[Rfam]
RNA sequence: CGACUUGUACGAAAUUGGUUUUCACAGUGGUCUAGCAGAGUGUAUAAAUCUCUGAGAUCAUUGUGAAAGCUGAUUUUGUUUU
Dot-bracket structure: ........((((((.((((((((((..((((((.....................))))))..)))))))))).))))))...
Numbered sequence: 001c002g003a004c005u006u007g008u009a010c011g012a013a014a015u016u017g018g019u020u021u022u023c024a025c026a027g028u029g030g031u032c033u034a035g036c037a038g039a040g041u042g043u044a045u046a047a048a049u050c051u052c053u054g055a056g057a058u059c060a061u062u063g064u065g066a067a068a069g070c071u072g073a074u075u076u077u078g079u080u081u082u
Stems, first nucleotide, its partner, number of pairs: 009079006016072010028060006

Rfam assigns this 82-nucleotide sequence from Nezara viridula to the family "bantam microRNA precursor family". NCBI's taxonomy places the organism under Eukaryota, Bilateria, Hexapoda, Neoheteroptera, Nezara. Rfam links the family to the GO terms RISC complex and miRNA-mediated post-transcriptional gene silencing. The base pairs follow the family's consensus structure, which was predicted with RNAalifold.